[Rfam]
The record is a 45-nucleotide sequence, which matches "eL15-Euryarchaeota ribosomal protein leader" in Rfam. It is one of the family's seed sequences. It is annotated as a cis-regulatory leader.

RNA sequence: GCGGAGUAAAUCCGCUGGGAUGUAACCGAAAGGUUGAACCGUAAA
Numbered sequence: 001g002c003g004g005a006g007u008a009a010a011u012c013c014g015c016u017g018g019g020a021u022g023u024a025a026c027c028g029a030a031a032g033g034u035u036g037a038a039c040c041g042u043a044a045a
Stems, first nucleotide, its partner, number of pairs: 001015005016041003024035004